[Rfam]
RNA sequence: AUAACAAGAGGGUGAAGCUGAAAUUCACCUUCAUUGCGCGGUCAAAGUCUUGGGAGGAUGCGAUCCAGGCGCGGUUAUUCGCAGCCGCCGACGAUGAUACGGUAAAGGAUCGGACGCGUUGAGUUUAGCAAGGCCUUGAGCCUUGCAUUUUUUU
Numbered sequence: 001a002u003a004a005c006a007a008g009a010g011g012g013u014g015a016a017g018c019u020g021a022a023a024u025u026c027a028c029c030u031u032c033a034u035u036g037c038g039c040g041g042u043c044a045a046a047g048u049c050u051u052g053g054g055a056g057g058a059u060g061c062g063a064u065c066c067a068g069g070c071g072c073g074g075u076u077a078u079u080c081g082c083a084g085c086c087g088c089c090g091a092c093g094a095u096g097a098u099a100c101g102g103u104a105a106a107g108g109a110u111c112g113g114a115c116g117c118g119u120u121g122a123g124u125u126u127a128g129c130a131a132g133g134c135c136u137u138g139a140g141c142c143u144u145g146c147a148u149u150u151u152u153u154u
Stems, first nucleotide, its partner, number of pairs: 003154002006151001011029006037118004047059004062111005068086003071082003088102003128146007
RNA: Alphaproteobacterial sRNA ar9